Record summary: The family of this 81-nucleotide RNA sequence from Ruminococcus sp. CAG:563 is "ZMP/ZTP riboswitch aptamer (pfl RNA motif)". The source organism's lineage runs through Bacteria, Bacillati, Bacillota, Oscillospiraceae and Ruminococcus. A search with the family's covariance model found it, with a score of 65 bits.
RNA sequence: GAGGUUCUUUGUGACUGACGGAAUUGUGGAUCACCACAGGGGAGCAAAGGACAAUAUAGGCCGACCGUCUGGGCACAGUUA
Numbered sequence: 001g002a003g004g005u006u007c008u009u010u011g012u013g014a015c016u017g018a019c020g021g022a023a024u025u026g027u028g029g030a031u032c033a034c035c036a037c038a039g040g041g042g043a044g045c046a047a048a049g050g051a052c053a054a055u056a057u058a059g060g061c062c063g064a065c066c067g068u069c070u071g072g073g074c075a076c077a078g079u080u081a
Stems, first nucleotide, its partner, number of pairs: 004052009015041002017069005026037004060074003